[Rfam]
RNA sequence: GCGGAGACGUAUGUUUCCGUUCACUCCUCACACCACACUCCGCCUGGACACUGUUCAGGCGGUU
Numbered sequence: 001g002c003g004g005a006g007a008c009g010u011a012u013g014u015u016u017c018c019g020u021u022c023a024c025u026c027c028u029c030a031c032a033c034c035a036c037a038c039u040c041c042g043c044c045u046g047g048a049c050a051c052u053g054u055u056c057a058g059g060c061g062g063u064u
Stems, first nucleotide, its partner, number of pairs: 001020008041061007
Background:
Shown here is a 64-nucleotide RNA from Cyanobacteria bacterium FACHB-502, a member of the family "Cyanobacterial functional RNA 1". For this family Rfam cites "A motif-based search in bacterial genomes identifies the ortholog of the small RNA Yfr1 in all lineages of cyanobacteria" (Voss et al., BMC Genomics, 2007). A search with the family's covariance model found it, with a score of 58 bits. Rfam classes the family as a small RNA.